[Rfam]
RNA sequence: CAAGCAGGCUGCAAUUGCAGUGCUUCAUUCUGUGGGAGCACUGCCAUUUUCCUGCUGAGAGCAACUCUGUUAACGUCGUCUUUGGUUCUACCUGUAUGUUGGUGAAACCAUUGUCCUUAACAUGUACAAGU
Numbered sequence: 001c002a003a004g005c006a007g008g009c010u011g012c013a014a015u016u017g018c019a020g021u022g023c024u025u026c027a028u029u030c031u032g033u034g035g036g037a038g039c040a041c042u043g044c045c046a047u048u049u050u051c052c053u054g055c056u057g058a059g060a061g062c063a064a065c066u067c068u069g070u071u072a073a074c075g076u077c078g079u080c081u082u083u084g085g086u087u088c089u090a091c092c093u094g095u096a097u098g099u100u101g102g103u104g105a106a107a108c109c110a111u112u113g114u115c116c117u118u119a120a121c122a123u124g125u126a127c128a129a130g131u
Base pairs, nucleotide, nucleotide: 003056004055005054006053007052008051018043019042020041021040022039023038024037025036026035068122069121070120071119072118073117075115083110084109085108086107087106089104090103091102092101094099
A member of the RNA family "Small nucleolar RNA SNORA69" from Dromaius novaehollandiae, 131 nucleotides long. The family's consensus secondary structure was predicted with PFOLD. The family has 16 seed sequences and 808 matches in Rfam 15.1. About the family: U69 is a member of the H/ACA class of small nucleolar RNAs (snoRNAs) which act as guides in the the modification of uridines to pseudouridines.